RNA sequence: AAAGUAAACCGGGCAAUCGCCGGUGGAUACCGCAAGGUUCCACGGGAGGAAAGUCCGAGCUCCGCAGGGCAGGGUGCCGGCUAACAGCCGGUGGGGGCAACCCUAAGGCUAGUGCCACAGAAAUGCAGACCGCCGAUGGAAGCGCCCAGGCGCUUCACAGGCAAGGAUGCAACGGUGCGGUAAGAGCGCACCAGCAGCAUGGAGACAUGUUGGCUAGGUAAACCCCACCUGGAGCAAGACCUUAAGGGGAUCAGCGCAUCAGCGCAGCUGUAGCCCGCAGUGAUCCCGGGUUGGUCGCUGGAGCGGUGCAGCAAUGCACCGCCUAGACAGAUGAUUGCCGCUCCAAUCAGUGGGAGGCGAAGCGACGUCAGCCGUCUAACCACUGGGAGAACAGAACUCGGCUUAUGGUUUGCUUUCCUC
Numbered sequence: 001a002a003a004g005u006a007a008a009c010c011g012g013g014c015a016a017u018c019g020c021c022g023g024u025g026g027a028u029a030c031c032g033c034a035a036g037g038u039u040c041c042a043c044g045g046g047a048g049g050a051a052a053g054u055c056c057g058a059g060c061u062c063c064g065c066a067g068g069g070c071a072g073g074g075u076g077c078c079g080g081c082u083a084a085c086a087g088c089c090g091g092u093g094g095g096g097g098c099a100a101c102c103c104u105a106a107g108g109c110u111a112g113u114g115c116c117a118c119a120g121a122a123a124u125g126c127a128g129a130c131c132g133c134c135g136a137u138g139g140a141a142g143c144g145c146c147c148a149g150g151c152g153c154u155u156c157a158c159a160g161g162c163a164a165g166g167a168u169g170c171a172a173c174g175g176u177g178c179g180g181u182a183a184g185a186g187c188g189c190a191c192c193a194g195c196a197g198c199a200u201g202g203a204g205a206c207a208u209g210u211u212g213g214c215u216a217g218g219u220a221a222a223c224c225c226c227a228c229c230u231g232g233a234g235c236a237a238g239a240c241c242u243u244a245a246g247g248g249g250a251u252c253a254g255c256g257c258a259u260c261a262g263c264g265c266a267g268c269u270g271u272a273g274c275c276c277g278c279a280g281u282g283a284u285c286c287c288g289g290g291u292u293g294g295u296c297g298c299u300g301g302a303g304c305g306g307u308g309c310a311g312c313a314a315u316g317c318a319c320c321g322c323c324u325a326g327a328c329a330g331a332u333g334a335u336u337g338c339c340g341c342u343c344c345a346a347u348c349a350g351u352g353g354g355a356g357g358c359g360a361a362g363c364g365a366c367g368u369c370a371g372c373c374g375u376c377u378a379a380c381c382a383c384u385g386g387g388a389g390a391a392c393a394g395a396a397c398u399c400g401g402c403u404u405a406u407g408g409u410u411u412g413c414u415u416u417c418c419u420c
Stems, first nucleotide, its partner, number of pairs: 001416011012339007020046002023043005051404003055401005060234004067276004072230005077091005092106001093104004107225002112223002114219003130166002132162003137157004174192006194214001195212007238296004247287006267281005303322008
Bacterial RNase P class A: a 420-nucleotide sequence from Paludifilum halophilum.
Rfam classes the family as a ribozyme.
Ribonuclease P (RNase P) is a ubiquitous endoribonuclease, found in archaea, bacteria and eukarya as well as chloroplasts and mitochondria.
The organism belongs to Paludifilum, within Bacteria.
The family is grouped with related families in Rfam's "RNaseP clan".
The match comes from Rfam's covariance-model search (279 bits).